[Rfam]
RNA: mir-16 microRNA precursor family
RNA sequence: UUUCCACUUUAGCAGAGCGAACGCUGGAGAGGAGGUUGCGUCCUCUCCAGCGUUGGCUCUGCUAAAGUGGAAA
Numbered sequence: 001u002u003u004c005c006a007c008u009u010u011a012g013c014a015g016a017g018c019g020a021a022c023g024c025u026g027g028a029g030a031g032g033a034g035g036u037u038g039c040g041u042c043c044u045c046u047c048c049a050g051c052g053u054u055g056g057c058u059c060u061g062c063u064a065a066a067g068u069g070g071a072a073a
Base pairs, nucleotide, nucleotide: 001073002072003071005069006068007067010066011063012062013061014060015059016058017057018056020054021053022052023051024050025049026048027047